[Rfam]
RNA sequence: UUUUCAUUGGAUAAUGACUGUCAUAUGUCAUGUUCUGAUUGGAUGUCAACUUCAUGAAAGAUGAAAUACAUUGUUGUUGUUAUUGGUCAAUCAGAACAUGACAUGUGACAGUCAUUAUUC
Number, nucleotide and partner (000 for none) at each position: 001u000002u000003u000004u000005c000006a000007u000008u000009g000010g000011a000012u000013a000014a000015u000016g000017a000018c000019u000020g109021u108022c107023a106024u000025a104026u103027g000028u000029c100030a099031u098032g000033u096034u095035c094036u093037g000038a091039u090040u089041g000042g000043a000044u000045g000046u000047c000048a000049a000050c000051u000052u000053c000054a000055u000056g000057a000058a000059a000060g000061a000062u000063g000064a000065a000066a000067u000068a000069c000070a000071u000072u000073g000074u000075u000076g000077u000078u000079g000080u000081u000082a000083u000084u000085g000086g000087u000088c000089a040090a039091u038092c000093a036094g035095a034096a033097c000098a031099u030100g029101a000102c000103a026104u025105g000106u023107g022108a021109c020110a000111g000112u000113c000114a000115u000116u000117a000118u000119u000120c000